[Rfam]
A member of the RNA family "Group II catalytic intron D1-D4-3" from Desulfovibrio sp. An276, 172 nucleotides long. Group II introns are found in rRNA, tRNA and mRNA of organelles in fungi, plants and protists, and also in mRNA in bacteria. The base pairs follow the family's consensus structure.
RNA sequence: CUUGUCGUGAGGCAAGUUCUGAAGGAAGUCUAUGGCAAACCACUGACCUGACGAACAGAAACCGUAUACGAGGCUGGCGUGUCGGAUGAGAGGGCCAGGAGACUCAAAGUCCAAUAGCUGCACGGAAGGCACGAAGGUAGAUGCGGUGGGUAUAAGUGGGAAAGUACUGUGU
Numbered sequence: 001c002u003u004g005u006c007g008u009g010a011g012g013c014a015a016g017u018u019c020u021g022a023a024g025g026a027a028g029u030c031u032a033u034g035g036c037a038a039a040c041c042a043c044u045g046a047c048c049u050g051a052c053g054a055a056c057a058g059a060a061a062c063c064g065u066a067u068a069c070g071a072g073g074c075u076g077g078c079g080u081g082u083c084g085g086a087u088g089a090g091a092g093g094g095c096c097a098g099g100a101g102a103c104u105c106a107a108a109g110u111c112c113a114a115u116a117g118c119u120g121c122a123c124g125g126a127a128g129g130c131a132c133g134a135a136g137g138u139a140g141a142u143g144c145g146g147u148g149g150g151u152a153u154a155a156g157u158g159g160g161a162a163a164g165u166a167c168u169g170u171g172u
Base pairs, nucleotide, nucleotide: 001016002015003014004013005012006011028172029171031169032168035165036164040159041158042157043156044155046151047150048149049148050147062146063145064144065143066142067141073138074137075136078133079132080131081130082129083128084112085111086110087109090105091104092103